[Rfam]
RNA sequence: GCAACGGGACGACCCGUUUUUAGCCGUCACGGUCCGCGCAGGACGACCUGC
Numbered sequence: 001g002c003a004a005c006g007g008g009a010c011g012a013c014c015c016g017u018u019u020u021u022a023g024c025c026g027u028c029a030c031g032g033u034c035c036g037c038g039c040a041g042g043a044c045g046a047c048c049u050g051c
Base pairs, nucleotide, nucleotide: 001020003018004017005016006015007014008013038051039050040049041048042047

Annotation: Rfam assigns this 51-nucleotide RNA from Pantoea vagans to the family "Guanidine-II riboswitch aptamer (mini-ykkC)". The match comes from Rfam's covariance-model search (33 bits). From the family's description: Simpler in structure and has fewer highly conserved nucleotide positions than the ykkC-yxkD leader. Despite this each of its two stem-loop structures directly bind free guanidine. Pairs were carried over by alignment from the consensus structure, which is taken from published work. The organism belongs to Pantoea, within Bacteria.